Rfam assigns this 86-nucleotide RNA sequence from Kyrpidia spormannii to the family "Group II catalytic intron D1-D4-1".
RNA sequence: CAAUCCGGAUCGAGAGGUUCGGUUGAACCGGCAGGAGUCAGCAGAGGGCAUAGUACCCAGGAGGUCAUGAACUCCGGGGGAAGGCC
Numbered sequence: 001c002a003a004u005c006c007g008g009a010u011c012g013a014g015a016g017g018u019u020c021g022g023u024u025g026a027a028c029c030g031g032c033a034g035g036a037g038u039c040a041g042c043a044g045a046g047g048g049c050a051u052a053g054u055a056c057c058c059a060g061g062a063g064g065u066c067a068u069g070a071a072c073u074c075c076g077g078g079g080g081a082a083g084g085c086c
Stems, first nucleotide, its partner, number of pairs: 001025002005022007038045002047086003056079003060075003
Rfam describes the family as follows. Group II introns are found in rRNA, tRNA and mRNA of organelles in fungi, plants and protists, and also in mRNA in bacteria. NCBI's taxonomy places the organism under Bacteria, Bacillota, Caryophanales, Alicyclobacillaceae, Kyrpidia.